A member of the RNA family "mir-17 microRNA precursor family" from Pleuronectes platessa, 81 nucleotides long. Rfam's curators write: This family represents the microRNA (miRNA) precursor mir-17, family, which includes mir-20, mir-91, and mir-103. miRNAs are transcribed as ~70nt precursors (modelled here) and subsequently processed by the Dicer enzyme to give a ~22nt product. In this case the mature sequence comes from the 3' arm of the precursor. The extents of the hairpin precursors are not generally known and are estimated based on hairpin prediction. The base pairs follow the family's consensus structure, which was predicted with RNAalifold.

[Rfam]
RNA sequence: CAGUGUGAGAUAAAGUGCUUACAGUGCAGGUAGUGAUGAUAACCCAGCCUACUGCAAUGUGAGCACUUAUUUCUCACGCUG
Numbered sequence: 001c002a003g004u005g006u007g008a009g010a011u012a013a014a015g016u017g018c019u020u021a022c023a024g025u026g027c028a029g030g031u032a033g034u035g036a037u038g039a040u041a042a043c044c045c046a047g048c049c050u051a052c053u054g055c056a057a058u059g060u061g062a063g064c065a066c067u068u069a070u071u072u073c074u075c076a077c078g079c080u081g
Stems, first nucleotide, its partner, number of pairs: 004078004009073002013068011025056003029053005
Dot-bracket structure: ...((((.((..(((((((((((.(((.(((((...............)))))))).)))))))))))...)).))))...